[Rfam]
RNA sequence: GAGGCAAGUGAUGAGAAGAAUAGACAGGGACAUCUGCACACCCUUGUUUUGGGGGUGAUUGAUGACUUGGUCUUAAAUGGGAAUCUCUCUGAUGCAUA
Numbered sequence: 001g002a003g004g005c006a007a008g009u010g011a012u013g014a015g016a017a018g019a020a021u022a023g024a025c026a027g028g029g030a031c032a033u034c035u036g037c038a039c040a041c042c043c044u045u046g047u048u049u050u051g052g053g054g055g056u057g058a059u060u061g062a063u064g065a066c067u068u069g070g071u072c073u074u075a076a077a078u079g080g081g082a083a084u085c086u087c088u089c090u091g092a093u094g095c096a097u098a
Stems, first nucleotide, its partner, number of pairs: 002097001004095003